[Rfam]
RNA sequence: GAACCGUGAAGAAAUUGGCUUUAGUUAAGGUUGGGUCCUUCGCAUUCAUCUAAUUACCAGAUGAUAUAGCUGCAUCUGAGUUC
Numbered sequence: 001g002a003a004c005c006g007u008g009a010a011g012a013a014a015u016u017g018g019c020u021u022u023a024g025u026u027a028a029g030g031u032u033g034g035g036u037c038c039u040u041c042g043c044a045u046u047c048a049u050c051u052a053a054u055u056a057c058c059a060g061a062u063g064a065u066a067u068a069g070c071u072g073c074a075u076c077u078g079a080g081u082u083c
Stems, first nucleotide, its partner, number of pairs: 001083004
Dot-bracket structure: ((((...........................................................................))))